[Rfam]
RNA sequence: CUCUUAUCAAGAGCGGUUGAGGGAUAGGCCCUGUGAAACCGCGGCAACCUUUGGGAACUUCCUAAAACGGUGCUAAUUCCUACAAAGUGGUUCUCUGCUUUGGAAGAUGAGAG
Numbered sequence: 001c002u003c004u005u006a007u008c009a010a011g012a013g014c015g016g017u018u019g020a021g022g023g024a025u026a027g028g029c030c031c032u033g034u035g036a037a038a039c040c041g042c043g044g045c046a047a048c049c050u051u052u053g054g055g056a057a058c059u060u061c062c063u064a065a066a067a068c069g070g071u072g073c074u075a076a077u078u079c080c081u082a083c084a085a086a087g088u089g090g091u092u093c094u095c096u097g098c099u100u101u102g103g104a105a106g107a108u109g110a111g112a113g
Base pairs, nucleotide, nucleotide: 001113002112003111004110005109006108007107008106013042014041015040016039017038021031022030023029025082026081027080028079043074044073045072046071048070049069050066051065052064053063078105083102084101085100086099087098088097
Dot-bracket structure: ((((((((....(((((...(((.[[[[)))......)))))((((.((((((.........))))..))))))...(]]]]((((((........))))))..)))))))))